[Rfam]
RNA sequence: GAUAACGCAAUGCCGAGUCCCGUAGAUCGCGGGAGCCGGGGACCCGUGCUUCUUGGGGUGAAUCGGGCGUUCCGCCUUCGUGGUGCGCCGGUAGGAGACCUUCCCGCUCCGAACCCGUCAGCUAACCCGGUAGGCGUCAGGGAAGGAAAGG
Number, nucleotide and partner (000 for none) at each position: 001g000002a000003u000004a000005a000006c000007g000008c000009a000010a000011u136012g135013c134014c133015g000016a000017g000018u034019c033020c032021c031022g030023u000024a000025g000026a000027u000028c000029g000030c022031g021032g020033g019034a018035g131036c130037c129038g128039g127040g126041g000042a000043c000044c000045c055046g054047u000048g000049c000050u000051u000052c000053u000054u046055g045056g116057g115058g114059u000060g000061a000062a000063u000064c091065g000066g089067g088068c087069g086070u085071u000072c000073c000074g000075c000076c000077u000078u000079c000080g000081u000082g000083g000084u000085g070086c069087g068088c067089c066090g000091g064092u000093a000094g110095g109096a108097g107098a000099c000100c000101u000102u000103c000104c000105c000106g000107c097108u096109c095110c094111g000112a000113a000114c058115c057116c056117g000118u000119c000120a000121g000122c000123u000124a000125a000126c040127c039128c038129g037130g036131u035132a000133g014134g013135c012136g011137u000138c000139a000140g000141g000142g000143a000144a000145g000146g000147a000148a000149a000150g000151g000
c-di-AMP riboswitch aptamer (ydaO/yuaA leader): a 151-nucleotide RNA sequence from Streptomyces sp. ICBB 8177. The match comes from Rfam's covariance-model search (88 bits). Its family is annotated with regulation of gene expression and cyclic-di-AMP binding in the Gene Ontology.